[Rfam]
RNA sequence: UGAGAGAACACUUCCUAAGGAACUUUGCAAUCUAGCCCCGUAACUUCGGGAGAAGGGGUGCCACGCGUAGGUGAGGGUGUACAAUCCAAGCCGAACGUGGUUGCAAUAAAGUGGCUCUAGCGACUGUUUACCAAAAACACAGGACUCUGCGAACACGCAAGUGGACGUAUAGGGUCUGACGCCUGCCCGGUGCUGGAAGGUUAACCGGAGGAGUUAGCCGCAAGGCGACGCUUUGAAGGGAAGCCCCAGUAAACGGCGGCCGUAACUAUAACGGUCCUAAGGUAGCGAAAUUCCUUGUCGGGUAAGUUCCGACCUGCAUGAAUGGCGUAACGACUGGAGCGCUGUCUCGGGAAGUGACUCA
Numbered sequence: 001u002g003a004g005a006g007a008a009c010a011c012u013u014c015c016u017a018a019g020g021a022a023c024u025u026u027g028c029a030a031u032c033u034a035g036c037c038c039c040g041u042a043a044c045u046u047c048g049g050g051a052g053a054a055g056g057g058g059u060g061c062c063a064c065g066c067g068u069a070g071g072u073g074a075g076g077g078u079g080u081a082c083a084a085u086c087c088a089a090g091c092c093g094a095a096c097g098u099g100g101u102u103g104c105a106a107u108a109a110a111g112u113g114g115c116u117c118u119a120g121c122g123a124c125u126g127u128u129u130a131c132c133a134a135a136a137a138c139a140c141a142g143g144a145c146u147c148u149g150c151g152a153a154c155a156c157g158c159a160a161g162u163g164g165a166c167g168u169a170u171a172g173g174g175u176c177u178g179a180c181g182c183c184u185g186c187c188c189g190g191u192g193c194u195g196g197a198a199g200g201u202u203a204a205c206c207g208g209a210g211g212a213g214u215u216a217g218c219c220g221c222a223a224g225g226c227g228a229c230g231c232u233u234u235g236a237a238g239g240g241a242a243g244c245c246c247c248a249g250u251a252a253a254c255g256g257c258g259g260c261c262g263u264a265a266c267u268a269u270a271a272c273g274g275u276c277c278u279a280a281g282g283u284a285g286c287g288a289a290a291u292u293c294c295u296u297g298u299c300g301g302g303u304a305a306g307u308u309c310c311g312a313c314c315u316g317c318a319u320g321a322a323u324g325g326c327g328u329a330a331c332g333a334c335u336g337g338a339g340c341g342c343u344g345u346c347u348c349g350g351g352a353a354g355u356g357a358c359u360c361a
Stems, first nucleotide, its partner, number of pairs: 001361004009356008018347003035059005044049001060101006102106001114340007121332002125139003142177008150167001154163003180327004185257003190254002192250005199245003205239002210234005217226002258276006277281001287314001297313006
Bacterial large subunit ribosomal RNA: a 361-nucleotide part of an RNA from Candidatus Nitrospira inopinata. The organism belongs to Nitrospira, within Bacteria. On this family, see Cannone et al., BMC Bioinformatics 2002: "The comparative RNA web (CRW) site: an online database of comparative sequence and structure information for ribosomal, intron, and other RNAs". A search with the family's covariance model found it, with a score of 2866 bits. The base pairs follow the family's consensus structure, which is taken from published work.